[Rfam]
Shown here is a 136-nucleotide sequence from Ochotona princeps, a member of the family "Small nucleolar RNA SNORA46".
The family's RNA type in Rfam is H/ACA-box small nucleolar RNA.
The base pairs follow the family's consensus structure, which was predicted with RNAfold.
Gene Ontology terms of the family: nucleolus and RNA processing.

RNA sequence: AGCACUAUAUUUAAGCCUAUGGAUGAGAAUUGUCCUCAUCAUUGGUUACGCUGUAGUGCAAGAGAAUUCCUGGCUCCAUCUGCUGCACAGCUGACUUGUGCAAUUCUGCUGUUGCUUGUGGAGUUAAGGAACAUUG
Numbered sequence: 001a002g003c004a005c006u007a008u009a010u011u012u013a014a015g016c017c018u019a020u021g022g023a024u025g026a027g028a029a030u031u032g033u034c035c036u037c038a039u040c041a042u043u044g045g046u047u048a049c050g051c052u053g054u055a056g057u058g059c060a061a062g063a064g065a066a067u068u069c070c071u072g073g074c075u076c077c078a079u080c081u082g083c084u085g086c087a088c089a090g091c092u093g094a095c096u097u098g099u100g101c102a103a104u105u106c107u108g109c110u111g112u113u114g115c116u117u118g119u120g121g122a123g124u125u126a127a128g129g130a131a132c133a134u135u136g
Base pairs, nucleotide, nucleotide: 002059003058004057005056006055007054008053009052014047015046016045017044022040023039024038025037026036027035067131068130069129070128071127072125073124074123075122076121077120079118085115086114087113088111089110090109091108093106094105
Dot-bracket structure: .((((((((....((((....((((((.......))))))...))))....)))))))).......(((((((((((.(.....(((((((.((..........)).)))).)))..).)))))).))))).....

Rfam's curators write: ACA46 is a member of the H/ACA class of snoRNA that guide the sites of modification of uridines to pseudouridines. The sequence is in the family's curated seed alignment.